[Rfam]
RNA sequence: GAUUUCCAUUGAAAAAGUCAUCAACAACAAAGUUAUAUAACUCAUCAAGAUCUAUAACUUUUAUUUUGGUCAUUUCUUUAUCUGACAAAGUGAUAGUAACAUUGUUCACAAAAUUCACAUAUCUCGUCUGGUUUUAUAAACUAUAACACAGAUAUGUCAAUUUUGUGAACAAUGUUACUAAUACUUCGUCGGAUGAAGAAAUGACAAAAGCAAAAGUUAUAGAUAUUGAUGAGUUAUACAACUUUGUUAUUGAUGACUUUUUUAGUUGAAAUC
Numbered sequence: 001g002a003u004u005u006c007c008a009u010u011g012a013a014a015a016a017g018u019c020a021u022c023a024a025c026a027a028c029a030a031a032g033u034u035a036u037a038u039a040a041c042u043c044a045u046c047a048a049g050a051u052c053u054a055u056a057a058c059u060u061u062u063a064u065u066u067u068g069g070u071c072a073u074u075u076c077u078u079u080a081u082c083u084g085a086c087a088a089a090g091u092g093a094u095a096g097u098a099a100c101a102u103u104g105u106u107c108a109c110a111a112a113a114u115u116c117a118c119a120u121a122u123c124u125c126g127u128c129u130g131g132u133u134u135u136a137u138a139a140a141c142u143a144u145a146a147c148a149c150a151g152a153u154a155u156g157u158c159a160a161u162u163u164u165g166u167g168a169a170c171a172a173u174g175u176u177a178c179u180a181a182u183a184c185u186u187c188g189u190c191g192g193a194u195g196a197a198g199a200a201a202u203g204a205c206a207a208a209a210g211c212a213a214a215a216g217u218u219a220u221a222g223a224u225a226u227u228g229a230u231g232a233g234u235u236a237u238a239c240a241a242c243u244u245u246g247u248u249a250u251u252g253a254u255g256a257c258u259u260u261u262u263u264a265g266u267u268g269a270a271a272u273c
Stems, first nucleotide, its partner, number of pairs: 014260008023251002026248002030244005036238007044230005050224004055219008064210004069205007077197005083191004088186005094180006101173012114160002117157006129143006
About this RNA
Shown here is a 273-nucleotide RNA sequence from Oryza sativa, a member of the family "MIR821 microRNA precursor family". The family's consensus secondary structure was predicted with RNAalifold. For this family Rfam cites "Rice embryogenic calli express a unique set of microRNAs, suggesting regulatory roles of microRNAs in plant post-embryogenic development" (Luo et al., FEBS Lett, 2006). The source organism's lineage runs through Eukaryota, Viridiplantae, Euphyllophyta, Oryzoideae and Oryza sativa.